RNA sequence: CACGAUAGGACACAAUUCACUUGUAUAUACGCUGUGAUAUGGACAGCAAGUUUCUACCCAGUUGCCGUAAAUAACUGGACUAUGAGUGAGAGUAACGUUGUA
Numbered sequence: 001c002a003c004g005a006u007a008g009g010a011c012a013c014a015a016u017u018c019a020c021u022u023g024u025a026u027a028u029a030c031g032c033u034g035u036g037a038u039a040u041g042g043a044c045a046g047c048a049a050g051u052u053u054c055u056a057c058c059c060a061g062u063u064g065c066c067g068u069a070a071a072u073a074a075c076u077g078g079a080c081u082a083u084g085a086g087u088g089a090g091a092g093u094a095a096c097g098u099u100g101u102a
Stems, first nucleotide, its partner, number of pairs: 018088008031047005058078007